The record is a 146-nucleotide RNA from Thiothrix unzii, which matches "sroH RNA" in Rfam. The match comes from Rfam's covariance-model search (87 bits). NCBI's taxonomy places the organism under Bacteria, Pseudomonadota, Gammaproteobacteria, Thiotrichaceae, Thiothrix. By type it is a small RNA. On this family, see Vogel et al., Nucleic Acids Res 2003: "RNomics in Escherichia coli detects new sRNA species and indicates parallel transcriptional output in bacteria". Pairs were carried over by alignment from the consensus structure. Rfam's curators write: This family consists of a number of bacterial sroH RNA genes of around 160 bases in length. The function of this family is unknown.
RNA sequence: GAUGAAAGCACAUCACAUAUACGUGAUUCAGGAUGUUGCAGACGGGUAUCCCCCGACAUCCCACUACCCUAGUGGUCAGGCCAAGUCCGGUAAAGGUGUUCUGAAUACCAGAAGAAAUUCUGGCGAAGCCCGCUUAAGCGGGCUUU
Numbered sequence: 001g002a003u004g005a006a007a008g009c010a011c012a013u014c015a016c017a018u019a020u021a022c023g024u025g026a027u028u029c030a031g032g033a034u035g036u037u038g039c040a041g042a043c044g045g046g047u048a049u050c051c052c053c054c055g056a057c058a059u060c061c062c063a064c065u066a067c068c069c070u071a072g073u074g075g076u077c078a079g080g081c082c083a084a085g086u087c088c089g090g091u092a093a094a095g096g097u098g099u100u101c102u103g104a105a106u107a108c109c110a111g112a113a114g115a116a117a118u119u120c121u122g123g124c125g126a127a128g129c130c131c132g133c134u135u136a137a138g139c140g141g142g143c144u145u146u
Stems, first nucleotide, its partner, number of pairs: 128143006